[Rfam]
RNA sequence: GCAUGGCUGAAUACUGUGUUCUUUUAUCAGUAGUUUACACAGCCAGACACCAUGCAAAACAGUCUUCCCUUGAGAAUGACAGAUGGUAUGCUAAGGUUUUUGAUAGCAUGUCAUUAUUAAAAGUGAAUAAAGAU
Numbered sequence: 001g002c003a004u005g006g007c008u009g010a011a012u013a014c015u016g017u018g019u020u021c022u023u024u025u026a027u028c029a030g031u032a033g034u035u036u037a038c039a040c041a042g043c044c045a046g047a048c049a050c051c052a053u054g055c056a057a058a059a060c061a062g063u064c065u066u067c068c069c070u071u072g073a074g075a076a077u078g079a080c081a082g083a084u085g086g087u088a089u090g091c092u093a094a095g096g097u098u099u100u101u102g103a104u105a106g107c108a109u110g111u112c113a114u115u116a117u118u119a120a121a122a123g124u125g126a127a128u129a130a131a132g133a134u
Stems, first nucleotide, its partner, number of pairs: 001055006014042006065127003068123001070121002073118002082115012
RNA: Small nucleolar RNA SNORA15
Organism: Sapajus apella